This 221-nucleotide RNA belongs to the Rfam family "Streptomyces sRNA 4677". It scores 73 bits against the family's covariance model. Rfam's curators write: Located in the intergenic region between anti-sigma factor SCO4677 gene and a putative regulatory protein gene SCO4676. scr4677 expression requires the SCO4677 activity and scr4677 sRNA itself seem to affect the levels of the SCO4676-associated transcripts. The base pairs follow the family's consensus structure.

[Rfam]
Nucleotides: 221
Base pairs, nucleotide, nucleotide: 009199010198017068019066082097083096084095085094086093087092156193157192158191159190160189162187163186164183166179167178168177169176203219204218205217206216207215
Number, partner (000 for none) and nucleotide at each position: 001000c002000g003000u004000c005000a006000c007000g008000g009199u010198g011000u012000g013000c014000c015000c016000c017068g018000a019066g020000a021000c022000c023000c024000c025000u026000u027000a028000a029000a030000g031000a032000a033000c034000u035000g036000g037000g038000g039000a040000a041000a042000g043000a044000a045000c046000u047000a048000a049000c050000c051000a052000a053000c054000c055000u056000c057000c058000c059000c060000c061000c062000c063000u064000g065000c066019c067000c068017c069000c070000c071000g072000a073000u074000u075000u076000c077000g078000u079000c080000c081000g082097u083096c084095a085094c086093c087092u088000g089000a090000u091000c092087a093086g094085g095084u096083g097082a098000c099000g100000g101000g102000c103000u104000c105000g106000c107000a108000a109000u110000u111000c112000g113000g114000g115000g116000c117000c118000g119000g120000g121000a122000g123000g124000c125000u126000g127000u128000a129000c130000g131000u132000u133000c134000a135000c136000g137000c138000c139000a140000c141000a142000a143000a144000c145000c146000a147000a148000a149000a150000a151000u152000g153000a154000a155000c156193g157192g158191c159190c160189c161000c162187c163186g164183a165000c166179g167178g168177g169176a170000c171000u172000g173000c174000c175000a176169u177168c178167c179166c180000a181000u182000a183164u184000g185000c186163c187162g188000a189160g190159g191158g192157c193156c194000u195000g196000a197000u198010c199009a200000a201000g202000a203219g204218g205217a206216a207215g208000a209000a210000g211000c212000g213000u214000g215207c216206u217205u218204c219203c220000c221000c